Small nucleolar RNA snR37: a 377-nucleotide RNA sequence from Lachancea waltii. The sequence is in the family's curated seed alignment. Its Rfam clan is "SNORA64 clan". For this family Rfam cites "Genome-wide searching for pseudouridylation guide snoRNAs: analysis of the Saccharomyces cerevisiae genome" (Schattner et al., Nucleic Acids Res, 2004). The family's consensus secondary structure was predicted with WAR. Its family is annotated with nucleolus and RNA processing in the Gene Ontology. By type it is an H/ACA-box small nucleolar RNA.

[Rfam]
RNA sequence: AUCAUCAGUAGUGGUUAAUACUAUCUCAAGAUAAUAUUAAUUACAAUUUUUUUAUAGAAACCGAUGUUUCAAUCACCUGUGUAUUUAAAAGUGGGGUUUGUGGCUUUGGUUUUCGGACCAAAGUUGGGGCUUUGCUUAAGUUAAUAUUGGUACGUGGUGGUUGAUUCAAGCAAUAACCCAUAGCUGAAUGGGCUUUGACCACCUCCAAACAAGGUGGCCACAAAGUCCAUUUCGUUUCCGGUUUCUUAGAUUAACGUCUGUCAUGAGGGAGUAUGAACUCUUUAAGAGUUCAUAAGUGCAUGUUUUUCAGAGGAGCGUGUAAUGCGCUCUGAGAGUUUGAAAGAUUCUGUUGUGCCCUCCUUCAUGUCAGUACAUUU
Numbered sequence: 001a002u003c004a005u006c007a008g009u010a011g012u013g014g015u016u017a018a019u020a021c022u023a024u025c026u027c028a029a030g031a032u033a034a035u036a037u038u039a040a041u042u043a044c045a046a047u048u049u050u051u052u053u054a055u056a057g058a059a060a061c062c063g064a065u066g067u068u069u070c071a072a073u074c075a076c077c078u079g080u081g082u083a084u085u086u087a088a089a090a091g092u093g094g095g096g097u098u099u100g101u102g103g104c105u106u107u108g109g110u111u112u113u114c115g116g117a118c119c120a121a122a123g124u125u126g127g128g129g130c131u132u133u134g135c136u137u138a139a140g141u142u143a144a145u146a147u148u149g150g151u152a153c154g155u156g157g158u159g160g161u162u163g164a165u166u167c168a169a170g171c172a173a174u175a176a177c178c179c180a181u182a183g184c185u186g187a188a189u190g191g192g193c194u195u196u197g198a199c200c201a202c203c204u205c206c207a208a209a210c211a212a213g214g215u216g217g218c219c220a221c222a223a224a225g226u227c228c229a230u231u232u233c234g235u236u237u238c239c240g241g242u243u244u245c246u247u248a249g250a251u252u253a254a255c256g257u258c259u260g261u262c263a264u265g266a267g268g269g270a271g272u273a274u275g276a277a278c279u280c281u282u283u284a285a286g287a288g289u290u291c292a293u294a295a296g297u298g299c300a301u302g303u304u305u306u307u308c309a310g311a312g313g314a315g316c317g318u319g320u321a322a323u324g325c326g327c328u329c330u331g332a333g334a335g336u337u338u339g340a341a342a343g344a345u346u347c348u349g350u351u352g353u354g355c356c357c358u359c360c361u362u363c364a365u366g367u368c369a370g371u372a373c374a375u376u377u
Base pairs, nucleotide, nucleotide: 008050010048011047012045013044014041015040016039017038018037019036020035022033023032024031025030056246057245058244059243060242061241062240070163071162072161073160074159075158076157077156079155080154081153082152083151084150085149089137090136091135093133094132095131096130097129098128099127101126102125106121107120108119109118110117111116139148140147141146186232187231188230189229190228191227192226195223196222197221199217200216201215202214203213258370259369260368262366264364265363266362267361268360269359270358271357272294273293274292275291276290277289278288279287280286296356300353301352302351304349306341307340308339309338310337311336312330313329314328315327316326317325318324